[Rfam]
RNA: bip internal ribosome entry site (IRES)
RNA sequence: CAUUGGCGGAGACAACACAGACGGAUAGAGUUGAGACGUCUGAGUGUGAGAGGUAAGUGCUGCGGCCUGCUUUCCCGGGUCUGCCUUUUACGUUGUUCGCAGCUCCUUCUGAUGCCUUGCCCUUGCCAUUCUCAGACCCGUAACCUCACUGCACUCAGCUGCGGCCUUUUGCUGGAUUGCCUGCGAUUUCUGACUGUCUGCUUCCCUGCCUGCUGACCGAGAGCAAGUGGCCGACAGCUACGGAAGAUGAAGCUCUCUCUGGUGGCCGCGGUGCUGCUG
Dot-bracket structure: ...((((.(......(...(............(((.(((.................(.(((((((...............................))))))).)......))).))).....................................).)...((((.....))))........................................................................................).))))...........
Numbered sequence: 001c002a003u004u005g006g007c008g009g010a011g012a013c014a015a016c017a018c019a020g021a022c023g024g025a026u027a028g029a030g031u032u033g034a035g036a037c038g039u040c041u042g043a044g045u046g047u048g049a050g051a052g053g054u055a056a057g058u059g060c061u062g063c064g065g066c067c068u069g070c071u072u073u074c075c076c077g078g079g080u081c082u083g084c085c086u087u088u089u090a091c092g093u094u095g096u097u098c099g100c101a102g103c104u105c106c107u108u109c110u111g112a113u114g115c116c117u118u119g120c121c122c123u124u125g126c127c128a129u130u131c132u133c134a135g136a137c138c139c140g141u142a143a144c145c146u147c148a149c150u151g152c153a154c155u156c157a158g159c160u161g162c163g164g165c166c167u168u169u170u171g172c173u174g175g176a177u178u179g180c181c182u183g184c185g186a187u188u189u190c191u192g193a194c195u196g197u198c199u200g201c202u203u204c205c206c207u208g209c210c211u212g213c214u215g216a217c218c219g220a221g222a223g224c225a226a227g228u229g230g231c232c233g234a235c236a237g238c239u240a241c242g243g244a245a246g247a248u249g250a251a252g253c254u255c256u257c258u259c260u261g262g263u264g265g266c267c268g269c270g271g272u273g274c275u276g277c278u279g
Stems, first nucleotide, its partner, number of pairs: 004268004009263001016158001020156001033118003037114003057105001059103007162174004